c-di-GMP-I-GGC riboswitch aptamer: a 116-nucleotide RNA sequence from Candidatus Brocadia sinica. The family is grouped with related families in Rfam's "c-di-GMP_I riboswitch clan".

[Rfam]
RNA sequence: UACGAUAAAGGCAAACCCUGAGCGAUCAGGGGACGCAAAGUAAAGGGUCUUUAGAAGCUGUUUAAACGGCUUAAACUGCUUAAACGGUUUAUUAGAAGACAGCCUUACUGCCGGAG
Numbered sequence: 001u002a003c004g005a006u007a008a009a010g011g012c013a014a015a016c017c018c019u020g021a022g023c024g025a026u027c028a029g030g031g032g033a034c035g036c037a038a039a040g041u042a043a044a045g046g047g048u049c050u051u052u053a054g055a056a057g058c059u060g061u062u063u064a065a066a067c068g069g070c071u072u073a074a075a076c077u078g079c080u081u082a083a084a085c086g087g088u089u090u091a092u093u094a095g096a097a098g099a100c101a102g103c104c105u106u107a108c109u110g111c112c113g114g115a116g
Base pairs, nucleotide, nucleotide: 001116003113004112011036012035016031017030018029019028020027021026034102039109040108041107042106044105045104046103047100048099049098050097051096052095